The record is a 120-nucleotide RNA from Vitis vinifera, which matches "Small nucleolar RNA snoR104" in Rfam. The organism belongs to Vitis, within Eukaryota. The base pairs follow the family's consensus structure, which was predicted with WAR. Its family is annotated with RNA processing and nucleolus in the Gene Ontology. A reference for the family is Marker et al. (2002), "Experimental RNomics: identification of 140 candidates for small non-messenger RNAs in the plant Arabidopsis thaliana", Curr Biol.
[Rfam]
RNA sequence: GGGGAGCAUCCUAAAGCUGAGAUGUUACCUGAUACAAUCUUCCUACAAAAAAAACAUCUGGAUUUUCGUGCUUGUUGUUUCUAAGCAAGCUCUACAAGCCUCAAGUUACCAGAGACAUGA
Numbered sequence: 001g002g003g004g005a006g007c008a009u010c011c012u013a014a015a016g017c018u019g020a021g022a023u024g025u026u027a028c029c030u031g032a033u034a035c036a037a038u039c040u041u042c043c044u045a046c047a048a049a050a051a052a053a054a055c056a057u058c059u060g061g062a063u064u065u066u067c068g069u070g071c072u073u074g075u076u077g078u079u080u081c082u083a084a085g086c087a088a089g090c091u092c093u094a095c096a097a098g099c100c101u102c103a104a105g106u107u108a109c110c111a112g113a114g115a116c117a118u119g120a
Stems, first nucleotide, its partner, number of pairs: 001030003005026006057113003070099006077092001080089001